[Rfam]
Background: A member of the RNA family "c-di-GMP-I-GGC riboswitch aptamer" from Thermanaeromonas sp. C210, 92 nucleotides long. The source organism's lineage runs through Bacteria, Bacillati, Clostridia, Neomoorellales and Thermanaeromonas. A search with the family's covariance model found it, with a score of 72 bits.
RNA sequence: CCCGAAAAAGGCAAACCGGCCGAAAGGCCGGGGCGCAAAGCUACAGGGUCUAAGGCCGUCUUUGUGGCGGCUAUGACAGCCAGCUGCCGUGG
Dot-bracket structure: (.((......((...((((((....))))))..[))..((((...(((((........................))).]))))))..))..)